The family of this 98-nucleotide sequence from Asaccharospora irregularis is "Clostridioides difficile sRNA included into helicase gene". Rfam describes the family as follows. This element was identified by RNA deep sequencing of Clostridioides difficile 630 where it is located within gene CD0749 (putative DNA helicase, UvrD/REP type) in the same direction as the gene. A reference for the family is Soutourina et al. (2013), "Genome-wide identification of regulatory RNAs in the human pathogen Clostridium difficile", PLoS Genet. The match comes from Rfam's covariance-model search (69 bits). The family's RNA type in Rfam is small RNA.

RNA sequence: UAAGGUCUAUGAAUGACUCUGAAAUUGAAGAGGAAAGAAGGCUUUGUUAUGUUGGUAUAACAAGAGCUAAGGAACAGUUGUUUAUGACAAUGACCAAA
Numbered sequence: 001u002a003a004g005g006u007c008u009a010u011g012a013a014u015g016a017c018u019c020u021g022a023a024a025u026u027g028a029a030g031a032g033g034a035a036a037g038a039a040g041g042c043u044u045u046g047u048u049a050u051g052u053u054g055g056u057a058u059a060a061c062a063a064g065a066g067c068u069a070a071g072g073a074a075c076a077g078u079u080g081u082u083u084a085u086g087a088c089a090a091u092g093a094c095c096a097a098a
Base pairs, nucleotide, nucleotide: 004095005094006093007092009091010090022050028044029043030042055088056087060083062081065079066078067077068076